A member of the RNA family "RAGATH-18 RNA" from Peptoclostridium acidaminophilum, 76 nucleotides long. Rfam classes the family as a small RNA. From the family's description: Actinobacteria, Firmicutes, Fusobacteria, Thermotogae (1 example). The match comes from Rfam's covariance-model search (56 bits).

[Rfam]
RNA sequence: ACUGUGGAGAGCUAUACAAAACUGUAGUAGACAGGUUGCGUCGCAAUCGUUGAGGCGGGGUUCGUUGAAGCAGUAA
Number, nucleotide and partner (000 for none) at each position: 001a074002c073003u072004g071005u070006g000007g000008a000009g063010a062011g061012c060013u059014a000015u000016a000017c000018a000019a000020a000021a000022c058023u057024g056025u000026a000027g000028u000029a000030g051031a050032c049033a000034g048035g047036u046037u045038g044039c043040g000041u000042c000043g039044c038045a037046a036047u035048c034049g032050u031051u030052g000053a000054g000055g000056c024057g023058g022059g013060g012061u011062u010063c009064g000065u000066u000067g000068a000069a000070g005071c004072a003073g002074u001075a000076a000